[Rfam]
RNA sequence: UUCUUAUCAAGAGAGACGGAGGGACUGGCCCGAAGAUGUCUCAGCAACCGACCAAUUUGUCAUUGGUAGUGGUGCUAAAUCCAACGGGUAUUGCACCCGAAAGAUGAGAA
Numbered sequence: 001u002u003c004u005u006a007u008c009a010a011g012a013g014a015g016a017c018g019g020a021g022g023g024a025c026u027g028g029c030c031c032g033a034a035g036a037u038g039u040c041u042c043a044g045c046a047a048c049c050g051a052c053c054a055a056u057u058u059g060u061c062a063u064u065g066g067u068a069g070u071g072g073u074g075c076u077a078a079a080u081c082c083a084a085c086g087g088g089u090a091u092u093g094c095a096c097c098c099g100a101a102a103g104a105u106g107a108g109a110a
Stems, first nucleotide, its partner, number of pairs: 001110008013042005021031003026083003043076004048072002051067005080102001085099005